[Rfam]
This 85-nucleotide sequence from Scaptodrosophila lebanonensis belongs to the Rfam family "mir-927 microRNA precursor family".
The family's consensus secondary structure was predicted with RNAalifold.
Gene Ontology terms of the family: miRNA-mediated post-transcriptional gene silencing and RISC complex.
RNA sequence: UGCAAACGUAGCUUUUUAGAAUUCCUACGCUUUACCGUCGCAUAAGAAACUCGGCAAAGCGUUUGGAUUCUGAAACGCUGUGUGC
Numbered sequence: 001u002g003c004a005a006a007c008g009u010a011g012c013u014u015u016u017u018a019g020a021a022u023u024c025c026u027a028c029g030c031u032u033u034a035c036c037g038u039c040g041c042a043u044a045a046g047a048a049a050c051u052c053g054g055c056a057a058a059g060c061g062u063u064u065g066g067a068u069u070c071u072g073a074a075a076c077g078c079u080g081u082g083u084g085c
Base pairs, nucleotide, nucleotide: 010079011078012077014075015074016073017072018071019070020069022067023066024065027062028061029060030059031058032057033056035054036053